RNA: S4-Clostridia ribosomal protein leader
RNA sequence: GAAAGAUCGGGCAGAUGCCCGGUUGGGGAUAUUUAAAAUCCCCCAAUCAAUUAGU
Numbered sequence: 001g002a003a004a005g006a007u008c009g010g011g012c013a014g015a016u017g018c019c020c021g022g023u024u025g026g027g028g029a030u031a032u033u034u035a036a037a038a039u040c041c042c043c044c045a046a047u048c049a050a051u052u053a054g055u
Stems, first nucleotide, its partner, number of pairs: 005024008025043006